[Rfam]
RNA sequence: CUGACCUGUCGCGACUGGCGUUCAAGGUGGAGGACCACCGGGGAGCGACACUGUUUUCGCCUUCUGCACGAUGGCAUUCGACCGCUCGCCUGGGCCGAUGUG
Numbered sequence: 001c002u003g004a005c006c007u008g009u010c011g012c013g014a015c016u017g018g019c020g021u022u023c024a025a026g027g028u029g030g031a032g033g034a035c036c037a038c039c040g041g042g043g044a045g046c047g048a049c050a051c052u053g054u055u056u057u058c059g060c061c062u063u064c065u066g067c068a069c070g071a072u073g074g075c076a077u078u079c080g081a082c083c084g085c086u087c088g089c090c091u092g093g094g095c096c097g098a099u100g101u102g
Stems, first nucleotide, its partner, number of pairs: 003054001007050006015042002017090004027038004079097002082094002
The record is a 102-nucleotide RNA from Microbacterium sp. Gd 4-13, which matches "ZMP/ZTP riboswitch aptamer (pfl RNA motif)" in Rfam. It scores 52 bits against the family's covariance model. Its family is annotated with regulation of purine nucleotide biosynthetic process and one-carbon metabolic process in the Gene Ontology.